Overview
Rfam assigns this 103-nucleotide sequence from Bacillus sp. FJAT-27986 to the family "Purine riboswitch aptamer". Taxonomically the source falls in Bacillus (Bacteria, Bacillota, Caryophanales, Bacillaceae). The family has 133 seed sequences and 4,097 matches in Rfam 15.1. Rfam links the family to the GO term purine nucleobase biosynthetic process.

RNA sequence: AAUAAAAAGCAAUCUACCCUUCAUAUAAUUUCGAAAAUAAGGUUCGAAAGUUCCUACCAAAUCACCGAAAAAUGAUUUGACUAUGGAGGAAUUAUAUAAAUGU
Numbered sequence: 001a002a003u004a005a006a007a008a009g010c011a012a013u014c015u016a017c018c019c020u021u022c023a024u025a026u027a028a029u030u031u032c033g034a035a036a037a038u039a040a041g042g043u044u045c046g047a048a049a050g051u052u053c054c055u056a057c058c059a060a061a062u063c064a065c066c067g068a069a070a071a072a073u074g075a076u077u078u079g080a081c082u083a084u085g086g087a088g089g090a091a092u093u094a095u096a097u098a099a100a101u102g103u
Stems, first nucleotide, its partner, number of pairs: 018089008029049007058079007